A member of the RNA family "Small nucleolar RNA SNORA70" from Orycteropus afer, 134 nucleotides long. Rfam classes the family as an H/ACA-box small nucleolar RNA.
RNA sequence: CUGCAGCUAGUUAAGCCGUCUGUCCUCCUUCCCUGUGGGGGCCGGUGUGCAAUGGCUGCAAACAGCAGCCUCCUCGGUAGUGUACGCAGCCUGUUAGCACAUAUAGGUUGCCCCCAGCGACCUUGGAGACAGCC
Numbered sequence: 001c002u003g004c005a006g007c008u009a010g011u012u013a014a015g016c017c018g019u020c021u022g023u024c025c026u027c028c029u030u031c032c033c034u035g036u037g038g039g040g041g042c043c044g045g046u047g048u049g050c051a052a053u054g055g056c057u058g059c060a061a062a063c064a065g066c067a068g069c070c071u072c073c074u075c076g077g078u079a080g081u082g083u084a085c086g087c088a089g090c091c092u093g094u095u096a097g098c099a100c101a102u103a104u105a106g107g108u109u110g111c112c113c114c115c116a117g118c119g120a121c122c123u124u125g126g127a128g129a130c131a132g133c134c
Stems, first nucleotide, its partner, number of pairs: 002051004020045003025040004076122003087110006
Dot-bracket structure: .((((..............(((..((((........))))..)))..))))........................(((........((((((............)))))).........)))............

Source information: Rfam's curators write: snoRNA U70 seems to be exclusive to mammals and is a member of the H/ACA class of snoRNA which contain H (ANANNA) and ACA box motifs.